[Rfam]
RNA sequence: GUUGCUUCAUAAUGGUGAAUACUCUCACAAUUAAAUGAGAGAAAUUCAAGUUUCCGGAGCAUAAAUUACCUUUUUUUUUAAAAAAAAACGCCAGGAUUAAACAGCUCAAUGUAGUUACUAAUUGCCUUGACGUUACCUGUCUCCUGGCACAUUC
Numbered sequence: 001g002u003u004g005c006u007u008c009a010u011a012a013u014g015g016u017g018a019a020u021a022c023u024c025u026c027a028c029a030a031u032u033a034a035a036u037g038a039g040a041g042a043a044a045u046u047c048a049a050g051u052u053u054c055c056g057g058a059g060c061a062u063a064a065a066u067u068a069c070c071u072u073u074u075u076u077u078u079u080a081a082a083a084a085a086a087a088a089c090g091c092c093a094g095g096a097u098u099a100a101a102c103a104g105c106u107c108a109a110u111g112u113a114g115u116u117a118c119u120a121a122u123u124g125c126c127u128u129g130a131c132g133u134u135a136c137c138u139g140u141c142u143c144c145u146g147g148c149a150c151a152u153u154c
Stems, first nucleotide, its partner, number of pairs: 003061006016048005022041004090148007103134003107129003111125001
small nucleolar RNA snoR137: a 154-nucleotide sequence from Lactuca sativa.
Rfam 15.1 lists 808 matches to the family in 221 species.
The organism belongs to Lactuca, within Eukaryota.
Rfam links the family to the GO terms RNA processing and nucleolus.